[Rfam]
RNA: TPP riboswitch aptamer (THI element)
Organism: Sulfurihydrogenibium yellowstonense
RNA sequence: AAUAAGCCGCGGGGGUGGUUGUCUUAAAAAGACAGCCUGAGAACAUACCCUUAGAACCUGAUGCAGGUAAUGCUGCCGUAGGGAAGCGGGCUUGAGAAAACC
Numbered sequence: 001a002a003u004a005a006g007c008c009g010c011g012g013g014g015g016u017g018g019u020u021g022u023c024u025u026a027a028a029a030a031g032a033c034a035g036c037c038u039g040a041g042a043a044c045a046u047a048c049c050c051u052u053a054g055a056a057c058c059u060g061a062u063g064c065a066g067g068u069a070a071u072g073c074u075g076c077c078g079u080a081g082g083g084a085a086g087c088g089g090g091c092u093u094g095a096g097a098a099a100a101c102c
Base pairs, nucleotide, nucleotide: 007089008088009087010086011051012050013049014048016045017037018036019035020034021033022032023031024030057082058081059080060079063076064075065074066073